[Rfam]
RNA: glmS glucosamine-6-phosphate activated ribozyme aptamer
Organism: Streptohalobacillus salinus
RNA sequence: GUUAUUAUGAUAGCGCCUGAACUAUUCAGUAACGAAUAGUUGACGAGGAGGAGGAGUAUCGAGUAUUCGGCGGAUGCCUCCCGGUUGUUUACCUCCAACCGACACAGUUAUAAAUAAAACAAAGAGGCGACUCUUUGGCCAGCAUUUAUAGCUAGAGCAAAAA
Number, nucleotide and partner (000 for none) at each position: 001g000002u000003u000004a000005u000006u000007a000008u000009g000010a000011u000012a000013g000014c000015g000016c000017c000018u000019g000020a041021a040022c039023u038024a037025u036026u035027c034028a000029g000030u000031a000032a000033c000034g027035a026036a025037u024038a023039g022040u021041u020042g000043a000044c000045g000046a000047g000048g000049a000050g081051g080052a079053g078054g077055a000056g000057u000058a000059u070060c069061g068062a067063g000064u000065a000066u000067u062068c061069g060070g059071c000072g000073g000074a000075u000076g000077c054078c053079u052080c051081c050082c101083g100084g099085u098086u097087g096088u000089u000090u000091a000092c000093c000094u000095c000096c087097a086098a085099c084100c083101g082102a000103c000104a000105c000106a153107g152108u151109u150110a149111u148112a147113a000114a000115u000116a000117a000118a000119a000120c137121a136122a135123a134124g133125a132126g131127g000128c000129g000130a000131c126132u125133c124134u123135u122136u121137g120138g000139c000140c000141a000142g000143c000144a000145u000146u000147u112148a111149u110150a109151g108152c107153u106154a000155g000156a000157g000158c000159a000160a000161a000162a000163a000